[Rfam]
RNA sequence: AAGCGUGCUCCGGGGUCGGUGAAAUUCCGAACCGGCGGUGACGCCCCUGCCCGGGGCGGCAGUCCGCGACCCGGCCGAAGCCAUCGGCCGGUGGACCUGGUGUGAUUCCAGGACCGACGGUGAAAGUCCGGAUGGGAGGAAGCGCGCGA
Numbered sequence: 001a002a003g004c005g006u007g008c009u010c011c012g013g014g015g016u017c018g019g020u021g022a023a024a025u026u027c028c029g030a031a032c033c034g035g036c037g038g039u040g041a042c043g044c045c046c047c048u049g050c051c052c053g054g055g056g057c058g059g060c061a062g063u064c065c066g067c068g069a070c071c072c073g074g075c076c077g078a079a080g081c082c083a084u085c086g087g088c089c090g091g092u093g094g095a096c097c098u099g100g101u102g103u104g105a106u107u108c109c110a111g112g113a114c115c116g117a118c119g120g121u122g123a124a125a126g127u128c129c130g131g132a133u134g135g136g137a138g139g140a141a142g143c144g145c146g147c148g149a
Stems, first nucleotide, its partner, number of pairs: 003147007010138001017029003031127002033116002035067004062114002071091002096112005118130003